Shown here is a 69-nucleotide sequence from Streptomyces swartbergensis, a member of the family "ASpks TB sRNA". It is annotated as an antisense RNA.

Nucleotides: 069
Base pairs, nucleotide, nucleotide: 014026015025016024017023032059037054038053039052041050042049043048
Number, partner (000 for none) and nucleotide at each position: 001000c002000u003000u004000g005000a006000c007000c008000g009000a010000c011000c012000c013000u014026a015025g016024c017023c018000a019000c020000a021000g022000c023017g024016g025015c026014u027000g028000c029000u030000c031000c032059c033000g034000c035000c036000c037054c038053u039052g040000u041050c042049c043048g044000u045000a046000u047000g048043u049042g050041g051000c052039c053038a054037g055000g056000a057000g058000g059032g060000c061000c062000u063000g064000c065000g066000c067000c068000u069000c
A search with the family's covariance model found it, with a score of 73 bits. The base pairs follow the family's consensus structure, which is taken from published work.